This 98-nucleotide RNA sequence from Salinibacterium sp. dk2585 belongs to the Rfam family "mraW RNA". Pairs were carried over by alignment from the consensus structure, which is taken from published work. It is annotated as a cis-regulatory element. A search with the family's covariance model found it, with a score of 60 bits.

[Rfam]
RNA sequence: UCUAGCGCCCUGGGCCUGACUCCCAGCCGAACGCCCUGCCGCACUUCCCCGGCGGCAGGUCGAGUCGGAUGGGGAUCAGACCGAGGGGGCAUCGGGAA
Numbered sequence: 001u002c003u004a005g006c007g008c009c010c011u012g013g014g015c016c017u018g019a020c021u022c023c024c025a026g027c028c029g030a031a032c033g034c035c036c037u038g039c040c041g042c043a044c045u046u047c048c049c050c051g052g053c054g055g056c057a058g059g060u061c062g063a064g065u066c067g068g069a070u071g072g073g074g075a076u077c078a079g080a081c082c083g084a085g086g087g088g089g090c091a092u093c094g095g096g097a098a
Base pairs, nucleotide, nucleotide: 010085011084013082014081016079018077019076021074022073023072024071025070027068028067029066030065032062033061035059036058037057038056039055040054041053042052